[Rfam]
RNA: mir-160 microRNA precursor family
RNA sequence: AUAUGCCUGGCUCCCUGUAUGCCACUUGCAGAUCUCAUCGAUAAUUCGAUGCCUCCGUGAAUGGCGUAUGAGGAGCCAAGCAUAA
Numbered sequence: 001a002u003a004u005g006c007c008u009g010g011c012u013c014c015c016u017g018u019a020u021g022c023c024a025c026u027u028g029c030a031g032a033u034c035u036c037a038u039c040g041a042u043a044a045u046u047c048g049a050u051g052c053c054u055c056c057g058u059g060a061a062u063g064g065c066g067u068a069u070g071a072g073g074a075g076c077c078a079a080g081c082a083u084a085a
Base pairs, nucleotide, nucleotide: 002084003083004082005081006080008078009077010076011075012074013073014072016070017069018068019067020066021065022064023063024062027059028058029057